Rfam assigns this 83-nucleotide sequence from Dracunculus medinensis to the family "mir-57 microRNA precursor family". Its family is annotated with RISC complex and miRNA-mediated post-transcriptional gene silencing in the Gene Ontology. The literature on the family includes a 2019 paper in Nucleic Acids Res by Kozomara et al., "miRBase: from microRNA sequences to function". The organism belongs to Dracunculus, within Eukaryota.
[Rfam]
RNA sequence: GGUUGGUUUUCUACCCUGUAGCACCGAGCUGUGUCUGAGUCUUGAUACAUACACGAUCGGUUACCGGGUGCAUGACCAACUUA
Numbered sequence: 001g002g003u004u005g006g007u008u009u010u011c012u013a014c015c016c017u018g019u020a021g022c023a024c025c026g027a028g029c030u031g032u033g034u035c036u037g038a039g040u041c042u043u044g045a046u047a048c049a050u051a052c053a054c055g056a057u058c059g060g061u062u063a064c065c066g067g068g069u070g071c072a073u074g075a076c077c078a079a080c081u082u083a
Stems, first nucleotide, its partner, number of pairs: 012070004018064004024060002028058001030056001032055003036051001039048002